This 78-nucleotide sequence from Equus caballus belongs to the Rfam family "mir-450 microRNA precursor family".
RNA sequence: GCUCAACUAUUUUUGCGAUGUGUUCCUAAUACGUAAUAUAAAUGUAUUGGGAACAUUUUGCAUUCAUAGUUUUGUAUC
Numbered sequence: 001g002c003u004c005a006a007c008u009a010u011u012u013u014u015g016c017g018a019u020g021u022g023u024u025c026c027u028a029a030u031a032c033g034u035a036a037u038a039u040a041a042a043u044g045u046a047u048u049g050g051g052a053a054c055a056u057u058u059u060g061c062a063u064u065c066a067u068a069g070u071u072u073u074g075u076a077u078c
Stems, first nucleotide, its partner, number of pairs: 005071006014062005020056014

The literature on the family includes a 2010 paper in Genes Dev by Chiang et al., "Mammalian microRNAs: experimental evaluation of novel and previously annotated genes".